[Rfam]
RNA sequence: AUGCGCCUGUGGCGGGUCCGGCACGAAUCAUUAUAGGCUUCGCAGGCAGCCGAUCCGUGUACGAUCUUGUACAUCCUAUAAUUUUAUAGGAUUUAAUGAUUUCU
Number, nucleotide and partner (000 for none) at each position: 001a000002u000003g000004c000005g047006c046007c045008u044009g043010u042011g041012g000013c000014g067015g066016g000017u064018c063019c000020g000021g060022c059023a058024c057025g056026a000027a054028u053029c000030a000031u000032u000033a000034u000035a000036g051037g050038c049039u048040u000041c011042g010043c009044a008045g007046g006047c005048a039049g038050c037051c036052g000053a028054u027055c000056c025057g024058u023059g022060u021061a000062c000063g018064a017065u000066c015067u014068u000069g000070u000071a000072c000073a000074u000075c090076c089077u088078a087079u086080a085081a000082u000083u000084u000085u080086a079087u078088a077089g076090g075091a000092u000093u000094u000095a000096a000097u000098g000099a000100u000101u000102u000103c000104u000